[Rfam]
RNA sequence: UGCUAUGAUGGUGUAAUUUGCGUCUGACUCUGUGCAGUGACGGUUUGCCGACUGUCUUAUAGCUGGCACGGCGGGUUGACGAAAUAUUAAUUCUGAGCA
Number, nucleotide and partner (000 for none) at each position: 001u099002g098003c097004u000005a000006u000007g000008a000009u000010g000011g000012u000013g000014u000015a000016a000017u000018u000019u000020g000021c081022g080023u079024c078025u000026g000027a000028c000029u000030c071031u070032g069033u068034g067035c000036a000037g063038u062039g056040a055041c054042g053043g052044u000045u000046u000047g000048c000049c000050g000051a000052c043053u042054g041055u040056c039057u000058u000059a000060u000061a000062g038063c037064u000065g000066g000067c034068a033069c032070g031071g030072c000073g000074g000075g000076u000077u000078g024079a023080c022081g021082a000083a000084a000085u000086a000087u000088u000089a000090a000091u000092u000093c000094u000095g000096a000097g003098c002099a001
RNA: Small nucleolar RNA SNORD16